[Rfam]
RNA sequence: GUAUCCUUUAAAAAUAGUCCCGUGAGGCUGACAAGGAGAGAAAGCAACACUUCCUAGGUGAAGUGUAUCUAAUUGUGUACUUUUACCUCUCAGUCUGUACUAGACUGAGAGUUUUUUUAU
Number, nucleotide and partner (000 for none) at each position: 001g000002u000003a000004u037005c036006c035007u034008u033009u000010a000011a000012a000013a000014a000015u030016a029017g028018u027019c026020c000021c000022g000023u000024g000025a000026g019027g018028c017029u016030g015031a000032c000033a008034a007035g006036g005037a004038g000039a000040g073041a000042a000043a070044g069045c000046a000047a066048c065049a064050c063051u062052u061053c060054c000055u000056a000057g000058g000059u000060g053061a052062a051063g050064u049065g048066u047067a000068u000069c044070u043071a000072a000073u040074u000075g000076u000077g000078u000079a000080c000081u000082u000083u000084u000085a113086c000087c111088u110089c109090u108091c107092a106093g105094u104095c103096u102097g000098u000099a000100c000101u000102a096103g095104a094105c093106u092107g091108a090109g089110a088111g087112u000113u085114u000115u000116u000117u000118u000119a000120u000